RNA sequence: GGCCCGAUGCCACGUCUCCAGUAGCCACAAGCCUUGAUCGGAGAUGCUACAUUGUGCCAACAGUGAGUUUUUGGACGUCUCACAUUUGAUAGGAACCUGUGGCUGUGAUUCUGUCGGUGCACAGAGCCGUUUUUUGUGACUACACUU
Numbered sequence: 001g002g003c004c005c006g007a008u009g010c011c012a013c014g015u016c017u018c019c020a021g022u023a024g025c026c027a028c029a030a031g032c033c034u035u036g037a038u039c040g041g042a043g044a045u046g047c048u049a050c051a052u053u054g055u056g057c058c059a060a061c062a063g064u065g066a067g068u069u070u071u072u073g074g075a076c077g078u079c080u081c082a083c084a085u086u087u088g089a090u091a092g093g094a095a096c097c098u099g100u101g102g103c104u105g106u107g108a109u110u111c112u113g114u115c116g117g118u119g120c121a122c123a124g125a126g127c128c129g130u131u132u133u134u135u136g137u138g139a140c141u142a143c144a145c146u147u
Stems, first nucleotide, its partner, number of pairs: 002057002005054005013046006021038002024032002080139005092128002097124003101120001102118003

Shown here is a 147-nucleotide RNA sequence from Hordeum vulgare, a member of the family "Small nucleolar RNA snoR2/U65". Rfam classes the family as an H/ACA-box small nucleolar RNA. Gene Ontology terms of the family: RNA processing and nucleolus. A reference for the family is Shaw et al. (1998), "Localization and processing from a polycistronic precursor of novel snoRNAs in maize", J Cell Sci.